[Rfam]
RNA sequence: AAUGGAAGCUGAACUAUGAAUGCUUGCGGUUUCAGUGUCUGCAUGCAAUUAGCAGUCUUCCUAUAGUAAUGCAAUGGAGAUCUCUGCCUAGCUCAGUGAAGAACAGUCUGGGCCUGGUCGUUCUCCUCCAUACACG
Numbered sequence: 001a002a003u004g005g006a007a008g009c010u011g012a013a014c015u016a017u018g019a020a021u022g023c024u025u026g027c028g029g030u031u032u033c034a035g036u037g038u039c040u041g042c043a044u045g046c047a048a049u050u051a052g053c054a055g056u057c058u059u060c061c062u063a064u065a066g067u068a069a070u071g072c073a074a075u076g077g078a079g080a081u082c083u084c085u086g087c088c089u090a091g092c093u094c095a096g097u098g099a100a101g102a103a104c105a106g107u108c109u110g111g112g113c114c115u116g117g118u119c120g121u122u123c124u125c126c127u128c129c130a131u132a133c134a135c136g
Stems, first nucleotide, its partner, number of pairs: 004061003008056004017047002020044004026038003076129004084120001086118003091113006
Dot-bracket structure: ...(((.((((.....((.((((..(((.......)))..)))).)).....))))..)))..............((((....(.(((..((((((...........))))))..))).).....)))).......
RNA: Small Cajal body specific RNA 3